[Rfam]
RNA sequence: CAUGCAAAUGGCUCUAUCGCUGUUCGCCUUAAGGGCGGAUGGAGGAAAGUCCGGGCAACACAGAGUAUCCUGCUUCCUAACGGGAAGGCGUUUUGUAAUAGAACGACAGAAAGUGCUACAGAAAACAAACCGCUUCGUUUCGAUAGCUAUCGGGAUGAAGUAAGGGUGAAAACGUGAGGUAAGAGCUCACGACUUUGUAUGGCGACAUGCAUCGUGGUAAACCUCAGGAGUUGAAAGAUCAAAUAAAUCCUGACCGUCAGAGCUACUCGUUCUGCCGCGCCCAGUGUGCUAUCAGGAAGGGUAGAUCGUUAGACUGCAAUAGCAAUAUUGUGGCAAGAUAAAUGAUAGAGACAUCCUGAAUUGUUUCGGGAUGACAGAACCCGGCUUACAAAUUUGCAUUAUUA
Numbered sequence: 001c002a003u004g005c006a007a008a009u010g011g012c013u014c015u016a017u018c019g020c021u022g023u024u025c026g027c028c029u030u031a032a033g034g035g036c037g038g039a040u041g042g043a044g045g046a047a048a049g050u051c052c053g054g055g056c057a058a059c060a061c062a063g064a065g066u067a068u069c070c071u072g073c074u075u076c077c078u079a080a081c082g083g084g085a086a087g088g089c090g091u092u093u094u095g096u097a098a099u100a101g102a103a104c105g106a107c108a109g110a111a112a113g114u115g116c117u118a119c120a121g122a123a124a125a126c127a128a129a130c131c132g133c134u135u136c137g138u139u140u141c142g143a144u145a146g147c148u149a150u151c152g153g154g155a156u157g158a159a160g161u162a163a164g165g166g167u168g169a170a171a172a173c174g175u176g177a178g179g180u181a182a183g184a185g186c187u188c189a190c191g192a193c194u195u196u197g198u199a200u201g202g203c204g205a206c207a208u209g210c211a212u213c214g215u216g217g218u219a220a221a222c223c224u225c226a227g228g229a230g231u232u233g234a235a236a237g238a239u240c241a242a243a244u245a246a247a248u249c250c251u252g253a254c255c256g257u258c259a260g261a262g263c264u265a266c267u268c269g270u271u272c273u274g275c276c277g278c279g280c281c282c283a284g285u286g287u288g289c290u291a292u293c294a295g296g297a298a299g300g301g302u303a304g305a306u307c308g309u310u311a312g313a314c315u316g317c318a319a320u321a322g323c324a325a326u327a328u329u330g331u332g333g334c335a336a337g338a339u340a341a342a343u344g345a346u347a348g349a350g351a352c353a354u355c356c357u358g359a360a361u362u363g364u365u366u367c368g369g370g371a372u373g374a375c376a377g378a379a380c381c382c383g384g385c386u387u388a389c390a391a392a393u394u395u396g397c398a399u400u401a402u403u404a
Base pairs, nucleotide, nucleotide: 002399003398004397005396006395007394008393009392011389012350013349014348015347016346017345018344020042021041022040023039024038025037026036027035028034047387048386049385051384052383053382054381055380056233057232058231059230068229069228070227071226072225073087074086075085076084077083088107089105090104091103092102093101094100108224109223113222114221115218116217117216130165131164132161133160134159135158136157137156138155139154140153141152142151143150144149173191174190175189176188177187178186196211197210198209199208200207201206237307238306239305240304248297249296250295251294252293277287278286279285280284314333315332316331317330318329319328320327321326
A member of the RNA family "Bacterial RNase P class A" from Pelobium manganitolerans, 404 nucleotides long. Its family is annotated with tRNA processing, dimeric ribonuclease P complex and ribonuclease P activity in the Gene Ontology. NCBI's taxonomy places the organism under Bacteria, Sphingobacteriia, Sphingobacteriales, Sphingobacteriaceae, Pelobium.